The family of this 160-nucleotide RNA sequence from Salix viminalis is "U1 spliceosomal RNA".
Pairs were carried over by alignment from the consensus structure, which is taken from published work.
It is annotated as a spliceosomal small nuclear RNA.
The family has 100 seed sequences and 40,184 matches in Rfam 15.1.
Clan: U1 clan.
It scores 117 bits against the family's covariance model.
[Rfam]
RNA sequence: AUACUUACCUGGACGGGGUCUAUGGGCGAUCAACAAGGUUCAUGGCCUAGGUCAGUGACAGUCAUUGCACUUUGACUGGGUGCUGGCUGAAGGUCUCCCCAAGAGGGAGAUCCUACGUCAAAAUUUGUGGCAGAGGGGGCUGCGCAAGCCGCGGCCCCUG
Numbered sequence: 001a002u003a004c005u006u007a008c009c010u011g012g013a014c015g016g017g018g019u020c021u022a023u024g025g026g027c028g029a030u031c032a033a034c035a036a037g038g039u040u041c042a043u044g045g046c047c048u049a050g051g052u053c054a055g056u057g058a059c060a061g062u063c064a065u066u067g068c069a070c071u072u073u074g075a076c077u078g079g080g081u082g083c084u085g086g087c088u089g090a091a092g093g094u095c096u097c098c099c100c101a102a103g104a105g106g107g108a109g110a111u112c113c114u115a116c117g118u119c120a121a122a123a124u125u126u127g128u129g130g131c132a133g134a135g136g137g138g139g140c141u142g143c144g145c146a147a148g149c150c151g152c153g154g155c156c157c158c159u160g
Stems, first nucleotide, its partner, number of pairs: 012119004016048005023042005049088002053085001059078005091114003094110003098106002135159005141153004